The record is a 102-nucleotide RNA sequence from Caenorhabditis brenneri, which matches "mir-36 microRNA precursor family" in Rfam. The base pairs follow the family's consensus structure, which was predicted with WAR. It scores 75 bits against the family's covariance model. The literature on the family includes a 2003 paper in Genes Dev by Lim et al., "The microRNAs of Caenorhabditis elegans".
RNA sequence: UAUUCAGGGCUAAACAGGGCCUGCGCUGGUUUUUGCCGCGGUGAUAUUCCAACGUCAUGAUUAUCACCGGGUGAAAAUACAGCACAGGCCCAAUCCGCCCUU
Numbered sequence: 001u002a003u004u005c006a007g008g009g010c011u012a013a014a015c016a017g018g019g020c021c022u023g024c025g026c027u028g029g030u031u032u033u034u035g036c037c038g039c040g041g042u043g044a045u046a047u048u049c050c051a052a053c054g055u056c057a058u059g060a061u062u063a064u065c066a067c068c069g070g071g072u073g074a075a076a077a078u079a080c081a082g083c084a085c086a087g088g089c090c091c092a093a094u095c096c097g098c099c100c101u102u
Base pairs, nucleotide, nucleotide: 017091018090019089020088021087022086025083026082027081028080029078030077031076032075033074034073035072036071037070039069041067042066043065044064045063046062